Notes: The record is a 33-nucleotide RNA sequence from Chitinophaga jiangningensis, which matches "DUF805b RNA" in Rfam. It is annotated as a cis-regulatory element. Pairs were carried over by alignment from the consensus structure, which is taken from published work.

RNA sequence: GAAGAGUAAACCGAAAAUCUUUAAGAGUAGGUA
Numbered sequence: 001g002a003a004g005a006g007u008a009a010a011c012c013g014a015a016a017a018u019c020u021u022u023a024a025g026a027g028u029a030g031g032u033a
Base pairs, nucleotide, nucleotide: 002021003020004019005018010032011031012030